This 98-nucleotide sequence from Nonomuraea wenchangensis belongs to the Rfam family "Glycine riboswitch aptamer". On this family, see Mandal et al., Science 2004: "A glycine-dependent riboswitch that uses cooperative binding to control gene expression". It scores 69 bits against the family's covariance model. The source organism's lineage runs through Bacteria, Bacillati, Actinomycetes, Streptosporangiaceae and Nonomuraea.
RNA sequence: CGAAACCGUGCGGGAGAGCACUCUGACAGCCGGUCAGGGUCCCUGAAGGAGCAAGCCCUCCCCGCGAACCUCUCAAGGCAAAGGACCGCACGGACGAG
Numbered sequence: 001c002g003a004a005a006c007c008g009u010g011c012g013g014g015a016g017a018g019c020a021c022u023c024u025g026a027c028a029g030c031c032g033g034u035c036a037g038g039g040u041c042c043c044u045g046a047a048g049g050a051g052c053a054a055g056c057c058c059u060c061c062c063c064g065c066g067a068a069c070c071u072c073u074c075a076a077g078g079c080a081a082a083g084g085a086c087c088g089c090a091c092g093g094a095c096g097a098g
Base pairs, nucleotide, nucleotide: 006093007092008091009090010089011088012087013086020040021039022038023037024036025035042078043077044076045074046073049072050071051070055065056064